RNA sequence: UGGCACCUACGGGGGCCUUACAUAUAGGCAGGAUACCCAAACAGGGACCUGCUGUUAGCUAACGGAAGACAGAAA
Numbered sequence: 001u002g003g004c005a006c007c008u009a010c011g012g013g014g015g016c017c018u019u020a021c022a023u024a025u026a027g028g029c030a031g032g033a034u035a036c037c038c039a040a041a042c043a044g045g046g047a048c049c050u051g052c053u054g055u056u057a058g059c060u061a062a063c064g065g066a067a068g069a070c071a072g073a074a075a
Stems, first nucleotide, its partner, number of pairs: 002017003006014003027053006
The record is a 75-nucleotide RNA sequence from Roseovarius albus, which matches "L2-Alphaproteobacteria ribosomal protein leader" in Rfam.
It is annotated as a cis-regulatory leader.
The base pairs follow the family's consensus structure, which is taken from published work.
Lineage of the source: Bacteria > Pseudomonadota > Alphaproteobacteria > Rhodobacterales > Roseovarius.
The match comes from Rfam's covariance-model search (59 bits).